RNA sequence: GUAAAAACGAUGAUAGGAAGUAGUAACAAGCACGUUUUUUAUAGAGAGUCAGCGGCUGGUGUAAGCUGAUAUUAACACUUGUGAAUCCGUCCUUUGAGUUGCGCGGCUGAAAAUUUAAGUAAGUCGUGGCCGGUUGAAAAAGCCGUUAUGGAACAAGUGGAUUCAGUUUUUUACUGAAUCAAUCAGGGUGGCAACGCGGGUAUGCUCUCGUCCCUUUU
Numbered sequence: 001g002u003a004a005a006a007a008c009g010a011u012g013a014u015a016g017g018a019a020g021u022a023g024u025a026a027c028a029a030g031c032a033c034g035u036u037u038u039u040u041a042u043a044g045a046g047a048g049u050c051a052g053c054g055g056c057u058g059g060u061g062u063a064a065g066c067u068g069a070u071a072u073u074a075a076c077a078c079u080u081g082u083g084a085a086u087c088c089g090u091c092c093u094u095u096g097a098g099u100u101g102c103g104c105g106g107c108u109g110a111a112a113a114u115u116u117a118a119g120u121a122a123g124u125c126g127u128g129g130c131c132g133g134u135u136g137a138a139a140a141a142g143c144c145g146u147u148a149u150g151g152a153a154c155a156a157g158u159g160g161a162u163u164c165a166g167u168u169u170u171u172u173a174c175u176g177a178a179u180c181a182a183u184c185a186g187g188g189u190g191g192c193a194a195c196g197c198g199g200g201u202a203u204g205c206u207c208u209c210g211u212c213c214c215u216u217u218u
Base pairs, nucleotide, nucleotide: 007099008098015093016092017091018090026082027081028080029079030078039071048070049069050068051067052066053065102129104126105125106124107123108122131145132144133143160180161179162178163177164176165175166174185215186214187213188212196211197210198209199208200207

Rfam assigns this 218-nucleotide RNA sequence from Psychrobacillus sp. FJAT-21963 to the family "T-box leader". Rfam describes the family as follows. Uncharged tRNA acts as the effector for transcription antitermination of genes in the T-box leader family. The literature on the family includes a 2001 paper in RNA by Winkler et al., "The GA motif: an RNA element common to bacterial antitermination systems, rRNA, and eukaryotic RNAs".